[Rfam]
RNA sequence: GUCCUAUAAAGAUGUAUUAACGCAAGACAGUUGGGCAUCUCCCUGUAGGAUGUAGAUUAAUAGAAAUUCUAACAACAAUUCUUAUUGUGUGGCUACGGUCGAAAUAAGAUGAGCUAGGACGGAAUAGGUUAACCGUAAGACCUUGAGUUGAAAAACUCUAAAAUUGAGCUAAAAAUGUGGAUUUCUUAAAUUUCGCAUUUUCUAGUUACGGCGUU
Numbered sequence: 001g002u003c004c005u006a007u008a009a010a011g012a013u014g015u016a017u018u019a020a021c022g023c024a025a026g027a028c029a030g031u032u033g034g035g036c037a038u039c040u041c042c043c044u045g046u047a048g049g050a051u052g053u054a055g056a057u058u059a060a061u062a063g064a065a066a067u068u069c070u071a072a073c074a075a076c077a078a079u080u081c082u083u084a085u086u087g088u089g090u091g092g093c094u095a096c097g098g099u100c101g102a103a104a105u106a107a108g109a110u111g112a113g114c115u116a117g118g119a120c121g122g123a124a125u126a127g128g129u130u131a132a133c134c135g136u137a138a139g140a141c142c143u144u145g146a147g148u149u150g151a152a153a154a155a156c157u158c159u160a161a162a163a164u165u166g167a168g169c170u171a172a173a174a175a176u177g178u179g180g181a182u183u184u185c186u187u188a189a190a191u192u193u194c195g196c197a198u199u200u201u202c203u204a205g206u207u208a209c210g211g212c213g214u215u
Base pairs, nucleotide, nucleotide: 001051002050003049004048005047006046007045008044010040011039012038013037014036015035017034018033019032020031021030022028067119068118069117070116071115073113080109081108082107083106084105085104086103091100092099126143127142128141129140130139133211134210135209136208137207138164145158146157147156148155149154169205170204171203172201173200174199175198176197177196178195179194180193181192
Overview
The record is a 215-nucleotide RNA, which matches "IS605-orfB-I RNA" in Rfam. It is annotated as a small RNA.